[Rfam]
Nucleotides: 097
Stems, first nucleotide, its partner, number of pairs: 003090003009084003014080007021072003025068005031062001033060001
Number, partner (000 for none) and nucleotide at each position: 001000a002000u003090u004089a005088c006000c007000u008000g009084g010083g011082a012000a013000u014080c015079u016078u017077g018076u019075u020074a021072a022071a023070a024000u025068a026067c027066a028065g029064a030000u031062u032000a033060u034000g035000u036000u037000u038000a039000g040000u041000u042000a043000g044000c045000a046000c047000g048000a049000g050000a051000u052000a053000g054000a055000u056000c057000c058000c059000a060033a061000a062031a063000u064029u065028c066027u067026g068025u069000a070023u071022u072021u073000c074020u075019a076018g077017c078016a079015a080014g081000g082011u083010c084009c085000c086000a087000a088005g089004u090003g091000a092000u093000a094000c095000u096000g097000a
This 97-nucleotide sequence from Chlorocebus sabaeus belongs to the Rfam family "mir-544 microRNA precursor family". The match comes from Rfam's covariance-model search (73 bits). Rfam 15.1 lists 10,750 matches to the family in 132 species. The family's consensus secondary structure was predicted with RNAalifold.